[Rfam]
The family of this 67-nucleotide RNA from Teichococcus coralli is "terC RNA". The match comes from Rfam's covariance-model search (52 bits). Lineage of the source: Bacteria > Pseudomonadati > Alphaproteobacteria > Acetobacterales > Roseomonas.

RNA sequence: ACGGUGAUCCGGGCCCCUCUGGCGACCCGGCGGGCGCUGCCCGCCUUCGCGAUGUCGGAUCGACUGA
Numbered sequence: 001a002c003g004g005u006g007a008u009c010c011g012g013g014c015c016c017c018u019c020u021g022g023c024g025a026c027c028c029g030g031c032g033g034g035c036g037c038u039g040c041c042c043g044c045c046u047u048c049g050c051g052a053u054g055u056c057g058g059a060u061c062g063a064c065u066g067a
Stems, first nucleotide, its partner, number of pairs: 006061007022050004029045007